About this RNA: A member of the RNA family "Glycine riboswitch aptamer" from Rhodoferax saidenbachensis, 130 nucleotides long. Lineage of the source: Bacteria > Pseudomonadati > Pseudomonadota > Betaproteobacteria > Rhodoferax. Rfam links the family to the GO term glycine biosynthetic process.
[Rfam]
RNA sequence: CGUUUCCCCACUGGAGAGAGGCUGCAUGCACUGCAGCCCACCGAAGGAGCAAACCGCAGUCUGCGCACCCCUUUUAGGCGUGCACGCAGGCCCGGCGAAUCUCUCAGGUAAAGCGGACAGCGGGGGCAGC
Numbered sequence: 001c002g003u004u005u006c007c008c009c010a011c012u013g014g015a016g017a018g019a020g021g022c023u024g025c026a027u028g029c030a031c032u033g034c035a036g037c038c039c040a041c042c043g044a045a046g047g048a049g050c051a052a053a054c055c056g057c058a059g060u061c062u063g064c065g066c067a068c069c070c071c072u073u074u075u076a077g078g079c080g081u082g083c084a085c086g087c088a089g090g091c092c093c094g095g096c097g098a099a100u101c102u103c104u105c106a107g108g109u110a111a112a113g114c115g116g117a118c119a120g121c122g123g124g125g126g127c128a129g130c
Base pairs, nucleotide, nucleotide: 006125007124008123009122011120012119013118020038021037022036023035024034025033040109041108042107043105044104047103048102049101054095055094056093